[Rfam]
RNA sequence: UGUAGGUAUAAGAACUCCCUCAGAACAGGCCAGCUGAAUUAUCAUAUUUCUUCCUGGUCGUAUUGAGGGAGAGAAAAACGUUUUCC
Numbered sequence: 001u002g003u004a005g006g007u008a009u010a011a012g013a014a015c016u017c018c019c020u021c022a023g024a025a026c027a028g029g030c031c032a033g034c035u036g037a038a039u040u041a042u043c044a045u046a047u048u049u050c051u052u053c054c055u056g057g058u059c060g061u062a063u064u065g066a067g068g069g070a071g072a073g074a075a076a077a078a079c080g081u082u083u084u085c086c
Base pairs, nucleotide, nucleotide: 015071016070017069018068019067020066021065022064023063025061026060028059029058030057031056032055033054036050037049038048
The family of this 86-nucleotide RNA sequence from Branchiostoma floridae is "mir-4899 microRNA precursor family". It is one of the family's seed sequences. The family has 2 seed sequences and 7 matches in Rfam 15.1. Taxonomically the source falls in Branchiostoma (Eukaryota, Bilateria, Cephalochordata, Branchiostomatidae). Its family is annotated with RISC complex and miRNA-mediated post-transcriptional gene silencing in the Gene Ontology.